[Rfam]
RNA sequence: GGCCCGCUUGCCCAGUGUUCAGACUACCUGUUCAGGAUGUGGUGAUUGUACAGUAGUCUGCACAUUGGUUAGGCUGAUCA
Numbered sequence: 001g002g003c004c005c006g007c008u009u010g011c012c013c014a015g016u017g018u019u020c021a022g023a024c025u026a027c028c029u030g031u032u033c034a035g036g037a038u039g040u041g042g043u044g045a046u047u048g049u050a051c052a053g054u055a056g057u058c059u060g061c062a063c064a065u066u067g068g069u070u071a072g073g074c075u076g077a078u079c080a
Base pairs, nucleotide, nucleotide: 012068013067014066015065016064017063018062020060021059022058023057024056025055026054028053029052030051031050033048034047
Shown here is an 80-nucleotide RNA from Ameiurus melas, a member of the family "mir-199 microRNA precursor family". Lineage of the source: Eukaryota > Opisthokonta > Actinopteri > Characiphysae > Ameiurus. Rfam describes the family as follows. This family consists of the microRNA (miRNA) precursor mir-199 which appears to be specific to humans. Animal miRNAs are transcribed as ~70nt precursors and subsequently processed by the Dicer enzyme to give a ~22nt product. In this case the mature sequence comes from the 3' arm of the precursor.